[Rfam]
RNA sequence: AAAACUGAUAGAGGCGCAGUAAAGAUCAGUAACCUGACAGAGGCUUCCGCUCCGAAUGUAUGUCAGGGGAAAGGCGAUGCUGCCGAAGCUCCGUCGUGAUGCGGUUUACGACCCUGCUGAGCAUAUGCCGAACAGGUAUAUGAUUGUCAUCAUGAUUGUAUGAUGGAGUGCUAUCUGACAC
Numbered sequence: 001a002a003a004a005c006u007g008a009u010a011g012a013g014g015c016g017c018a019g020u021a022a023a024g025a026u027c028a029g030u031a032a033c034c035u036g037a038c039a040g041a042g043g044c045u046u047c048c049g050c051u052c053c054g055a056a057u058g059u060a061u062g063u064c065a066g067g068g069g070a071a072a073g074g075c076g077a078u079g080c081u082g083c084c085g086a087a088g089c090u091c092c093g094u095c096g097u098g099a100u101g102c103g104g105u106u107u108a109c110g111a112c113c114c115u116g117c118u119g120a121g122c123a124u125a126u127g128c129c130g131a132a133c134a135g136g137u138a139u140a141u142g143a144u145u146g147u148c149a150u151c152a153u154g155a156u157u158g159u160a161u162g163a164u165g166g167a168g169u170g171c172u173a174u175c176u177g178a179c180a181c
Stems, first nucleotide, its partner, number of pairs: 007175005016083006024075001033067007087118003093112006119145002122142008147166007
The family of this 181-nucleotide RNA sequence from Ruminococcus sp. CAG:353 is "Lysine riboswitch aptamer". Rfam describes the family as follows. Riboswitches are metabolite binding domains within certain messenger RNAs that serve as precision sensors for their corresponding targets. The source organism's lineage runs through Bacteria, Bacillati, Bacillota, Clostridia and Ruminococcus.